The record is a 74-nucleotide RNA, which matches "L13-Bacteroidia ribosomal protein leader" in Rfam. It is annotated as a cis-regulatory leader. Pairs were carried over by alignment from the consensus structure, which is taken from published work. Rfam's curators put it in the seed alignment. The literature on the family includes a 2020 paper in BMC Microbiol by Eckert and Weinberg, "Discovery of 20 novel ribosomal leader candidates in bacteria and archaea".
RNA sequence: GGGGAUACACUUAGAACCCCAGGAAAGGCGUGUUAAUAGCGGUGCUUUUGGCCAGGCACAGCGGUUAGUGAAUC
Numbered sequence: 001g002g003g004g005a006u007a008c009a010c011u012u013a014g015a016a017c018c019c020c021a022g023g024a025a026a027g028g029c030g031u032g033u034u035a036a037u038a039g040c041g042g043u044g045c046u047u048u049u050g051g052c053c054a055g056g057c058a059c060a061g062c063g064g065u066u067a068g069u070g071a072a073u074c
Stems, first nucleotide, its partner, number of pairs: 001020004033068005039062002042059006